[Rfam]
RNA sequence: UCAUCACCAUCAUUUUCUCGACUAGGCUUUCAGAAUAUUAUUCUGGAAGGCCAACCGCUUGGCGGCUUCCAGCAGGAUAACAAUAUUAACCCUCGGAAGCUUUGCUCCGGGGGUUUUUU
Numbered sequence: 001u002c003a004u005c006a007c008c009a010u011c012a013u014u015u016u017c018u019c020g021a022c023u024a025g026g027c028u029u030u031c032a033g034a035a036u037a038u039u040a041u042u043c044u045g046g047a048a049g050g051c052c053a054a055c056c057g058c059u060u061g062g063c064g065g066c067u068u069c070c071a072g073c074a075g076g077a078u079a080a081c082a083a084u085a086u087u088a089a090c091c092c093u094c095g096g097a098a099g100c101u102u103u104g105c106u107c108c109g110g111g112g113g114u115u116u117u118u119u
Stems, first nucleotide, its partner, number of pairs: 009041002012036003020031002043072007085118001088115010099105001
Shown here is a 119-nucleotide RNA from Oceanisphaera avium, a member of the family "Histidine operon leader".
At least 6 amino acid operons are known to be regulated by attenuation.
Lineage of the source: Bacteria > Gammaproteobacteria > Aeromonadales > Aeromonadaceae > Oceanisphaera.